[Rfam]
RNA sequence: CGCGCGGUGUAGGCCCAAGUGGACUCGGCUGCCGACAGCACCUCGUCGCCGAUGCGCUCGCCGUCGGCGACCACGCCCAACGUGGUCUGGUCGCCGUAGUGUCCGGCGCCGAGCAGAGUCGCCUUGCCGUGGGCGAUGAGGACCAGCCGAUCGAUCGGCCCACCGGCCUCCACAAUGGACUCGUCCGCCUCGUACUCGCGCUGCUCGAAGCGGCUCGCCAGCUCGGCGAGCACCUCUGCGUCGUCGAAACCACGCAGUGGAGCCAGUUCGCGCAGUUCGUCGGGAAUCACCCGGACUCUCGCGCCGUCGGUGACGAACUCGACGCGGCCGUCGCCGAGGGUGUACGUGCGGCGGCGGUUGACCCGGUAGACGCCACCCGCGGCCUGCACCCAUGGCAGGGCGCGCAGCAGCCAGCGGGAGCUGAUCCCCUGCAUCUGGGGGACGGACUUCGUGGUGGUCGCCAGGUUUCGCGCGGCGGCGGUGCUCAGACUUUGCUGUGGAUGAUCG
Numbered sequence: 001c002g003c004g005c006g007g008u009g010u011a012g013g014c015c016c017a018a019g020u021g022g023a024c025u026c027g028g029c030u031g032c033c034g035a036c037a038g039c040a041c042c043u044c045g046u047c048g049c050c051g052a053u054g055c056g057c058u059c060g061c062c063g064u065c066g067g068c069g070a071c072c073a074c075g076c077c078c079a080a081c082g083u084g085g086u087c088u089g090g091u092c093g094c095c096g097u098a099g100u101g102u103c104c105g106g107c108g109c110c111g112a113g114c115a116g117a118g119u120c121g122c123c124u125u126g127c128c129g130u131g132g133g134c135g136a137u138g139a140g141g142a143c144c145a146g147c148c149g150a151u152c153g154a155u156c157g158g159c160c161c162a163c164c165g166g167c168c169u170c171c172a173c174a175a176u177g178g179a180c181u182c183g184u185c186c187g188c189c190u191c192g193u194a195c196u197c198g199c200g201c202u203g204c205u206c207g208a209a210g211c212g213g214c215u216c217g218c219c220a221g222c223u224c225g226g227c228g229a230g231c232a233c234c235u236c237u238g239c240g241u242c243g244u245c246g247a248a249a250c251c252a253c254g255c256a257g258u259g260g261a262g263c264c265a266g267u268u269c270g271c272g273c274a275g276u277u278c279g280u281c282g283g284g285a286a287u288c289a290c291c292c293g294g295a296c297u298c299u300c301g302c303g304c305c306g307u308c309g310g311u312g313a314c315g316a317a318c319u320c321g322a323c324g325c326g327g328c329c330g331u332c333g334c335c336g337a338g339g340g341u342g343u344a345c346g347u348g349c350g351g352c353g354g355c356g357g358u359u360g361a362c363c364c365g366g367u368a369g370a371c372g373c374c375a376c377c378c379g380c381g382g383c384c385u386g387c388a389c390c391c392a393u394g395g396c397a398g399g400g401c402g403c404g405c406a407g408c409a410g411c412c413a414g415c416g417g418g419a420g421c422u423g424a425u426c427c428c429c430u431g432c433a434u435c436u437g438g439g440g441g442a443c444g445g446a447c448u449u450c451g452u453g454g455u456g457g458u459c460g461c462c463a464g465g466u467u468u469c470g471c472g473c474g475g476c477g478g479c480g481g482u483g484c485u486c487a488g489a490c491u492u493u494g495c496u497g498u499g500g501a502u503g504a505u506c507g
Stems, first nucleotide, its partner, number of pairs: 006390007014382002021325001025322004032315001036312002039309001042306001045305001047303003051299001054233001057230007065111004075103001078101002082097005118222002121219001122217001127212001130209001131206005138199001140197001142196001148192002153189001155187001157185003160178002166173001235295003240290002243287002250282001252280003256277003260271001262269001329342004353377002356374002363369001391431002394428002397425001400422001403418001405416001407415001437476001440473001443470004447465003451461002477506002481502002484499001486497003

Rfam assigns this 507-nucleotide RNA sequence from Actinokineospora alba to the family "Saccharopolyspora sRNA 350". The base pairs follow the family's consensus structure, which was predicted with RNAfold. Taxonomically the source falls in Actinokineospora (Bacteria, Bacillati, Pseudonocardiales, Pseudonocardiaceae). A reference for the family is Liu et al. (2013), "Prediction and characterization of small non-coding RNAs related to secondary metabolites in Saccharopolyspora erythraea", PLoS One. It scores 135 bits against the family's covariance model. The family has 2 seed sequences and 1,170 matches in Rfam 15.1.